RNA sequence: GGUUUUAACCCAGUAUCUCAAGGUACUAAGGGCGUACGACCUACCACUCGUGGUUGCGUCGAAAACCUCAAUUUUUGGACAGCCUUCCCGGGGUAUCCGAGAGGGCAGAA
Numbered sequence: 001g002g003u004u005u006u007a008a009c010c011c012a013g014u015a016u017c018u019c020a021a022g023g024u025a026c027u028a029a030g031g032g033c034g035u036a037c038g039a040c041c042u043a044c045c046a047c048u049c050g051u052g053g054u055u056g057c058g059u060c061g062a063a064a065a066c067c068u069c070a071a072u073u074u075u076u077g078g079a080c081a082g083c084c085u086u087c088c089c090g091g092g093g094u095a096u097c098c099g100a101g102a103g104g105g106c107a108g109a110a
Stems, first nucleotide, its partner, number of pairs: 008035001009032002016025001018023001037061004041056001043054003084108002087105003092098002
This 110-nucleotide RNA sequence from Ancylostoma duodenale belongs to the Rfam family "SL2 RNA". Clan: SL clan. By type it is a non-coding RNA gene. This family represents SL2 RNA. SL2 RNA is involved in trans splicing in lower eukaryotes. Trans-splicing is a form of RNA processing. The source organism's lineage runs through Eukaryota, Opisthokonta, Protostomia, Ecdysozoa and Ancylostoma. Gene Ontology term of the family: mRNA trans splicing, via spliceosome.